Shown here is a 48-nucleotide sequence from Seohaeicola zhoushanensis, a member of the family "Guanidine-II riboswitch aptamer (mini-ykkC)". About the family: Simpler in structure and has fewer highly conserved nucleotide positions than the ykkC-yxkD leader. A search with the family's covariance model found it, with a score of 40 bits. Pairs were carried over by alignment from the consensus structure, which is taken from published work.
[Rfam]
RNA sequence: CCGCGAGGACGACCUCCCCAUUUUGGACCAAAGCCCGGGACGGCCCGG
Numbered sequence: 001c002c003g004c005g006a007g008g009a010c011g012a013c014c015u016c017c018c019c020a021u022u023u024u025g026g027a028c029c030a031a032a033g034c035c036c037g038g039g040a041c042g043g044c045c046c047g048g
Base pairs, nucleotide, nucleotide: 003018005016006015007014008013035048036047037046038045039044